[Rfam]
RNA sequence: UGGUGGUGAUGUUUAAACUCACGAUGGUCUUCAGAGCCCCUGCUGGUGAGGGGGGCUGCUGACAGUGCCUGUGGCAAUUGCUGAACCAUAUGU
Numbered sequence: 001u002g003g004u005g006g007u008g009a010u011g012u013u014u015a016a017a018c019u020c021a022c023g024a025u026g027g028u029c030u031u032c033a034g035a036g037c038c039c040c041u042g043c044u045g046g047u048g049a050g051g052g053g054g055g056c057u058g059c060u061g062a063c064a065g066u067g068c069c070u071g072u073g074g075c076a077a078u079u080g081c082u083g084a085a086c087c088a089u090a091u092g093u
Base pairs, nucleotide, nucleotide: 001088002087003086004085
The family of this 93-nucleotide sequence from Phalacrocorax carbo is "Small nucleolar RNA SNORD35".
The family is grouped with related families in Rfam's "SNORD35 clan".
It scores 66 bits against the family's covariance model.
Rfam's curators write: U35 is a C/D box snoRNA located in intron 6 of ribosomal protein L13A and intron 3 of ribosomal protein S11 in humans and at homologous positions in mouse and chicken ribosomal protein genes. U35 guides the methylation of 2'-O-ribose sites in 28S rRNA.
Pairs were carried over by alignment from the consensus structure, which was predicted with PFOLD.
Gene Ontology terms of the family: nucleolus and RNA processing.
A reference for the family is Nicoloso et al. (1996), "Intron-encoded, antisense small nucleolar RNAs: the characterization of nine novel species points to their direct role as guides for the 2'-O-ribose methylation of rRNAs", J Mol Biol.
The source organism's lineage runs through Eukaryota, Deuterostomia, Chordata, Archosauria and Phalacrocorax.